[Rfam]
RNA sequence: UCGUAAGUCGUUGUCAGGCACUCUGCCGGCAGCGGCGAGCUUCGUUCGUCCCAAAUGGAUGUGACGAGGUUUCACCCGAAAAAGGAA
Numbered sequence: 001u002c003g004u005a006a007g008u009c010g011u012u013g014u015c016a017g018g019c020a021c022u023c024u025g026c027c028g029g030c031a032g033c034g035g036c037g038a039g040c041u042u043c044g045u046u047c048g049u050c051c052c053a054a055a056u057g058g059a060u061g062u063g064a065c066g067a068g069g070u071u072u073c074a075c076c077c078g079a080a081a082a083a084g085g086a087a
Base pairs, nucleotide, nucleotide: 007036008035009034010033011032012031013030014029015028018026019025037072038071039070040069041068042067043066044065045064046063047061048060049059050058051057